[Rfam]
Nucleotides: 073
Base pairs, nucleotide, nucleotide: 002072003071004070005069008065011063012062013061014060015059017057019055020054021053023052024051025050026049027048028047029046030045
Number, partner (000 for none) and nucleotide at each position: 001000g002072c003071g004070u005069g006000u007000u008065g009000g010000c011063a012062g013061u014060g015059u016000g017057g018000u019055u020054a021053g022000c023052u024051g025050g026049u027048u028047g029046u030045g031000u032000a033000g034000c035000u036000u037000a038000u039000a040000g041000a042000a043000a044000g045030c046029a047028c048027g049026a050025c051024c052023g053021c054020u055019a056000u057017c058000g059015a060014c061013a062012c063011u064000g065008c066000a067000a068000u069005u070004a071003u072002g073000a